[Rfam]
RNA: Guanidine-I riboswitch aptamer
Organism: Gillisella ampelina
RNA sequence: AGAGUUGGCAGCUAGGGUUCCGGCGCGAGAAGCGUGACUGGUCCGAGAGCAGCCACCGGCGGGGGAGACAUCCCUGUCGGGUGCACGGCGGGAUAAAAGCCCGGGAGAC
Number, nucleotide and partner (000 for none) at each position: 001a000002g000003a000004g000005u000006u000007g054008g053009c052010a000011g050012c049013u000014a000015g044016g043017g000018u000019u000020c041021c040022g038023g035024c034025g033026c032027g000028a000029g000030a000031a000032g026033c025034g024035u023036g000037a000038c022039u000040g021041g020042u000043c016044c015045g000046a000047g000048a000049g012050c011051a000052g009053c008054c007055a082056c081057c079058g078059g077060c076061g075062g074063g073064g072065g000066a000067g000068a000069c000070a000071u000072c064073c063074c062075u061076g060077u059078c058079g057080g000081g056082u055083g000084c104085a000086c107087g000088g000089c000090g102091g101092g100093a000094u000095a000096a000097a000098a000099g000100c092101c091102c090103g000104g084105g000106a000107g086108a000109c000